[Rfam]
RNA: Y RNA
RNA sequence: GGCUGGGCUGAUUACAGUGGUAUUUACAACUAAUUGAUUACAACCAGUUACAGAUUUUCUUGUUCCUUCUCCAUUCCCACUGUUUCACUUGACUAGCCUUUA
Numbered sequence: 001g002g003c004u005g006g007g008c009u010g011a012u013u014a015c016a017g018u019g020g021u022a023u024u025u026a027c028a029a030c031u032a033a034u035u036g037a038u039u040a041c042a043a044c045c046a047g048u049u050a051c052a053g054a055u056u057u058u059c060u061u062g063u064u065c066c067u068u069c070u071c072c073a074u075u076c077c078c079a080c081u082g083u084u085u086c087a088c089u090u091g092a093c094u095a096g097c098c099u100u101u102a
Stems, first nucleotide, its partner, number of pairs: 001098006008091001010090002016081005028064003032060001